[Rfam]
RNA: tpke11
RNA sequence: AAUCAGCACGGGCGUCGAGGAAACUCUGCGCCCGUGCACGCAUGUUGAAGGGCAGGAAAAGAAAU
Numbered sequence: 001a002a003u004c005a006g007c008a009c010g011g012g013c014g015u016c017g018a019g020g021a022a023a024c025u026c027u028g029c030g031c032c033c034g035u036g037c038a039c040g041c042a043u044g045u046u047g048a049a050g051g052g053c054a055g056g057a058a059a060a061g062a063a064a065u
Stems, first nucleotide, its partner, number of pairs: 006037009017026003